Shown here is an 86-nucleotide RNA sequence, a member of the family "Glycine riboswitch aptamer". It scores 33 bits against the family's covariance model. Rfam's curators write: This family represents the bacterial glycine riboswitch.
RNA sequence: CUUAAGAGAAAAGGAAAACAAUAAAAAUAUUGCCCUAGGUGUAAAAUUGCCCUGAAUCUCUGAGGCAAAAUGAUUUUUCUCCCACC
Number, nucleotide and partner (000 for none) at each position: 001c000002u000003u000004a000005a000006g081007a080008g079009a078010a077011a076012a075013g074014g000015a000016a000017a000018a000019c000020a030021a000022u000023a028024a000025a000026a000027a000028u023029a000030u020031u000032g066033c065034c064035c062036u000037a000038g000039g060040u000041g058042u000043a000044a000045a053046a000047u000048u000049g000050c000051c000052c000053u045054g000055a000056a000057u000058c041059u000060c039061u000062g035063a000064g034065g033066c032067a000068a000069a000070a000071u000072g000073a000074u013075u012076u011077u010078u009079c008080u007081c006082c000083c000084a000085c000086c000